This 181-nucleotide RNA sequence from Acipenser ruthenus belongs to the Rfam family "Small Cajal body specific RNA 1".
Taxonomically the source falls in Acipenser (Eukaryota, Vertebrata, Euteleostomi, Actinopterygii).
scaRNAs are a specific class of small nuclear RNAs which localise to the Cajal bodies and guide the modification of RNA polymerase II transcribed spliceosomal RNAs U1, U2, U4, U5 and U12.
Its family is annotated with RNA processing, Cajal body and nucleolus in the Gene Ontology.
A search with the family's covariance model found it, with a score of 66 bits.
RNA sequence: CUGCACCAGAUACUAACCUGCCUGUCUGCCCUGCAGUUUCUUUUAAACUGUCCAGUGCUGUGCGAUUGCUGGGUCACUCGGGUGCAAUAUCAACCCUUGCCAUGAGAUGUAAGCUCAGAGUGCAGAGAGGACACCCUGCGUUAAUCUUUUCAGUGCCUCUGCACAAACCAGAGGCACUGAA
Dot-bracket structure: ..(((((........(((.(.(.(((.((.(((((((((.....)))))).).)).)).....))).).).)))......))))).............(((................(.((.(.....).)).).(((..(........................)..))).)))......